A member of the RNA family "U5 spliceosomal RNA" from Cuscuta campestris, 118 nucleotides long.

RNA sequence: AGCCACGCAAUAAGCACAUAGCGAACUAUUCUUUCGCCUUUUACUAAAGAAUACCGUGUGCUUGUUGCAAUUAGUGGCAUACAUUCAUUUUUGGAGGGCUUUUUUCUUUGGAAGAGCC
Numbered sequence: 001a002g003c004c005a006c007g008c009a010a011u012a013a014g015c016a017c018a019u020a021g022c023g024a025a026c027u028a029u030u031c032u033u034u035c036g037c038c039u040u041u042u043a044c045u046a047a048a049g050a051a052u053a054c055c056g057u058g059u060g061c062u063u064g065u066u067g068c069a070a071u072u073a074g075u076g077g078c079a080u081a082c083a084u085u086c087a088u089u090u091u092u093g094g095a096g097g098g099c100u101u102u103u104u105u106c107u108u109u110g111g112a113a114g115a116g117c118c
Stems, first nucleotide, its partner, number of pairs: 003077004008067011027053008097118006
Rfam describes the family as follows. U5 RNA is a component of both types of known spliceosome. Its family is annotated with U5 snRNP and spliceosomal tri-snRNP complex assembly in the Gene Ontology.